The record is a 118-nucleotide sequence from Eubacterium callanderi, which matches "Molybdenum/Tungsten riboswitch aptamer (Moco RNA motif)" in Rfam. A search with the family's covariance model found it, with a score of 59 bits.
[Rfam]
RNA sequence: AAUUAAAUAUGCAUUCGAGUCUAUAGGCCUAAAGGAAGUCCCAUGGCUGCGGACCGAUGAGUGUAGGGGGAAACGCCUGCGCUUUCCGUAUUUGAGAAGAAUGCAAUUGAGCUGUUUG
Numbered sequence: 001a002a003u004u005a006a007a008u009a010u011g012c013a014u015u016c017g018a019g020u021c022u023a024u025a026g027g028c029c030u031a032a033a034g035g036a037a038g039u040c041c042c043a044u045g046g047c048u049g050c051g052g053a054c055c056g057a058u059g060a061g062u063g064u065a066g067g068g069g070g071a072a073a074c075g076c077c078u079g080c081g082c083u084u085u086c087c088g089u090a091u092u093u094g095a096g097a098a099g100a101a102u103g104c105a106a107u108u109g110a111g112c113u114g115u116u117u118g
Base pairs, nucleotide, nucleotide: 004111011104012103013102014101015100016099019054020053021052022051024049025048027047028046029045034041035040059084060083061082062081063080064079065078066077067076069074085095086094
Lineage of the source: Bacteria > Bacillati > Bacillota > Eubacteriales > Eubacterium.